Rfam assigns this 73-nucleotide sequence from Populus deltoides to the family "Small nucleolar RNA Z105". The base pairs follow the family's consensus structure, which was predicted with CMfinder. It scores 49 bits against the family's covariance model. Its family is annotated with RNA processing and nucleolus in the Gene Ontology. The literature on the family includes a 2003 paper in Nucleic Acids Res by Chen et al., "The high diversity of snoRNAs in plants: identification and comparative study of 120 snoRNA genes from Oryza sativa". It is annotated as a C/D-box small nucleolar RNA.

[Rfam]
RNA sequence: GCAUCGUGAUGAUAAAUUUGAAUUUUGUCCGAUCAAUUUCAUGACAGGAUUAUUAACCUCCUACUCAUACUGA
Numbered sequence: 001g002c003a004u005c006g007u008g009a010u011g012a013u014a015a016a017u018u019u020g021a022a023u024u025u026u027g028u029c030c031g032a033u034c035a036a037u038u039u040c041a042u043g044a045c046a047g048g049a050u051u052a053u054u055a056a057c058c059u060c061c062u063a064c065u066c067a068u069a070c071u072g073a
Stems, first nucleotide, its partner, number of pairs: 006068004025049002029043001
Dot-bracket structure: .....((((...............((..(.............)....))...............)))).....